[Rfam]
RNA: permuted transfer-messenger RNA
Organism: Elstera cyanobacteriorum
RNA sequence: GGCGAUAAACGCUGCGUGGAAUAGACGUUACGGACCCGGGGGCGGUACCCGGCGCCUCCACCAAUCUUCCCUGUCGAUUGCAGGGCCGUUGGGGGCGAAAUAGGAUCGACGUGCGUAGUAAAGACCCAGUUUUCGCUCGGUAUGGUUCCGCCGUUAUCGGGCUAAACUCAGAAGUGCCAACGACAAUCGUGUUGCACUCGCUGCCUAA
Numbered sequence: 001g002g003c004g005a006u007a008a009a010c011g012c013u014g015c016g017u018g019g020a021a022u023a024g025a026c027g028u029u030a031c032g033g034a035c036c037c038g039g040g041g042g043c044g045g046u047a048c049c050c051g052g053c054g055c056c057u058c059c060a061c062c063a064a065u066c067u068u069c070c071c072u073g074u075c076g077a078u079u080g081c082a083g084g085g086c087c088g089u090u091g092g093g094g095g096c097g098a099a100a101u102a103g104g105a106u107c108g109a110c111g112u113g114c115g116u117a118g119u120a121a122a123g124a125c126c127c128a129g130u131u132u133u134c135g136c137u138c139g140g141u142a143u144g145g146u147u148c149c150g151c152c153g154u155u156a157u158c159g160g161g162c163u164a165a166a167c168u169c170a171g172a173a174g175u176g177c178c179a180a181c182g183a184c185a186a187u188c189g190u191g192u193u194g195c196a197c198u199c200g201c202u203g204c205c206u207a208a
Stems, first nucleotide, its partner, number of pairs: 001137005014127001016125002026115003030112003036052005053097007138153004